[Rfam]
RNA sequence: CAAAACAGAAGAGGAGCGUUACCCAGGUAUCGGAUUUGCGGGGCCCCACCCCAAAGCAAGUUCAGAGAGGGGGAGUAACGCCGAGAUACAGCAACGCAGGGGAGUUGUUGUAUCGGCCUUGAAGGUUGAAUCCUUCAGGCUGUCACUACGCGUCUUUGAAAGGAAUCCUGAAGGCGCAUAGUGGGGAGCUUCUGGUUGU
Number, nucleotide and partner (000 for none) at each position: 001c000002a000003a000004a000005a000006c194007a193008g192009a191010a190011g189012a000013g000014g000015a000016g081017c080018g079019u078020u077021a076022c075023c000024c073025a000026g000027g000028u000029a000030u066031c065032g063033g062034a061035u060036u059037u058038g000039c000040g000041g000042g000043g000044c000045c000046c000047c000048a000049c000050c000051c000052c000053a000054a000055a000056g000057c000058a037059a036060g035061u034062u033063c032064a000065g031066a030067g000068a000069g000070g000071g000072g000073g024074a000075g022076u021077a020078a019079c018080g017081c016082c000083g000084a000085g114086a113087u112088a111089c110090a109091g108092c107093a106094a105095c104096g000097c000098a000099g000100g000101g000102g000103a000104g095105u094106u093107g092108u091109u090110g089111u088112a087113u086114c085115g141116g140117c139118c138119u000120u137121g136122a135123a134124g133125g132126u000127u000128g000129a000130a000131u000132c125133c124134u123135u122136c121137a120138g118139g117140c116141u115142g000143u184144c183145a182146c181147u180148a179149c000150g000151c000152g000153u000154c000155u000156u000157u000158g000159a000160a000161a000162g000163g000164a000165a000166u000167c000168c000169u000170g000171a000172a000173g000174g000175c000176g000177c000178a000179u148180a147181g146182u145183g144184g143185g000186g000187a000188g000189c011190u010191u009192c008193u007194g006195g000196u000197u000198g000199u000

Rfam assigns this 199-nucleotide RNA from Photobacterium jeanii to the family "Lysine riboswitch aptamer". The match comes from Rfam's covariance-model search (90 bits). Rfam links the family to the GO term lysine biosynthetic process.